[Rfam]
RNA: c-di-GMP-I-GGC riboswitch aptamer
Organism: Anaerocolumna jejuensis
RNA sequence: ACCGAUAAAGGCAAACCUCUUGAAAAACAGGGACGCAAAACUACAGGGCCUUACUAAAUGAAUCAUUUAGCUGGCAGCCAGUUACCGAAG
Numbered sequence: 001a002c003c004g005a006u007a008a009a010g011g012c013a014a015a016c017c018u019c020u021u022g023a024a025a026a027a028c029a030g031g032g033a034c035g036c037a038a039a040a041c042u043a044c045a046g047g048g049c050c051u052u053a054c055u056a057a058a059u060g061a062a063u064c065a066u067u068u069a070g071c072u073g074g075c076a077g078c079c080a081g082u083u084a085c086c087g088a089a090g
Stems, first nucleotide, its partner, number of pairs: 003087002011036002016031003020027002034077001039083004046079002048075003